[Rfam]
RNA sequence: ACCCUUCACAACGGGGUGCGGCGUCGCUAUAUUCGUUCGGUCCCCUCGGGGACUAUGGUGAUAAACGCGCACGUAAUACACGGAUCGGACCCGGGGGCGGUACCCGGCGGCUCCACCAACACCCGUUCAUUGGCGGGCGAGGGGCCGAAACAGGAUCGACGGACGUCUAAAGGUGUUUGCUUUCACCCGGUGAGCCACCACCGUUAUCGGUGCAAAUUGUACAGUUGCCAAUGACAACCGUGCUCCGGUGGCCGUUGCUGCGUAAGCAGUAACCAAACCGAAACUUAAGUCCCCUGGCUUUGCCGUCAGGGGCGGGGCUCGCAGGCGCCUGGCAACAGAAGCCUGCACU
Numbered sequence: 001a002c003c004c005u006u007c008a009c010a011a012c013g014g015g016g017u018g019c020g021g022c023g024u025c026g027c028u029a030u031a032u033u034c035g036u037u038c039g040g041u042c043c044c045c046u047c048g049g050g051g052a053c054u055a056u057g058g059u060g061a062u063a064a065a066c067g068c069g070c071a072c073g074u075a076a077u078a079c080a081c082g083g084a085u086c087g088g089a090c091c092c093g094g095g096g097g098c099g100g101u102a103c104c105c106g107g108c109g110g111c112u113c114c115a116c117c118a119a120c121a122c123c124c125g126u127u128c129a130u131u132g133g134c135g136g137g138c139g140a141g142g143g144g145c146c147g148a149a150a151c152a153g154g155a156u157c158g159a160c161g162g163a164c165g166u167c168u169a170a171a172g173g174u175g176u177u178u179g180c181u182u183u184c185a186c187c188c189g190g191u192g193a194g195c196c197a198c199c200a201c202c203g204u205u206a207u208c209g210g211u212g213c214a215a216a217u218u219g220u221a222c223a224g225u226u227g228c229c230a231a232u233g234a235c236a237a238c239c240g241u242g243c244u245c246c247g248g249u250g251g252c253c254g255u256u257g258c259u260g261c262g263u264a265a266g267c268a269g270u271a272a273c274c275a276a277a278c279c280g281a282a283a284c285u286u287a288a289g290u291c292c293c294c295u296g297g298c299u300u301u302g303c304c305g306u307c308a309g310g311g312g313c314g315g316g317g318c319u320c321g322c323a324g325g326c327g328c329c330u331g332g333c334a335a336c337a338g339a340a341g342c343c344u345g346c347a348c349u
Stems, first nucleotide, its partner, number of pairs: 040053005057187005067180002069176004081165002085162003091107005108147007188203004194213002197211003315330004321346006
The family of this 349-nucleotide RNA sequence from Pikeienuella piscinae is "Alphaproteobacteria transfer-messenger RNA". The match comes from Rfam's covariance-model search (289 bits). Lineage of the source: Bacteria > Pseudomonadota > Alphaproteobacteria > Rhodobacterales > Pikeienuella. The family is grouped with related families in Rfam's "tRNA clan".